The record is an 83-nucleotide RNA sequence from Collimonas fungivorans, which matches "Proteo-phage-1 RNA" in Rfam. The family's consensus secondary structure is taken from published work. Lineage of the source: Bacteria > Pseudomonadota > Burkholderiales > Collimonas > Collimonas fungivorans. It is annotated as a small RNA.

[Rfam]
RNA sequence: AGCCAGGGCACGGCUCCGCGCAAGCGGUGAGUGCCCGCAGGAUCAGUCGGCGAGUGCCUGCACAUGAAAAAACCCCGACAACC
Numbered sequence: 001a002g003c004c005a006g007g008g009c010a011c012g013g014c015u016c017c018g019c020g021c022a023a024g025c026g027g028u029g030a031g032u033g034c035c036c037g038c039a040g041g042a043u044c045a046g047u048c049g050g051c052g053a054g055u056g057c058c059u060g061c062a063c064a065u066g067a068a069a070a071a072a073c074c075c076c077g078a079c080a081a082c083c
Stems, first nucleotide, its partner, number of pairs: 001015004007035005017026003037061005046079005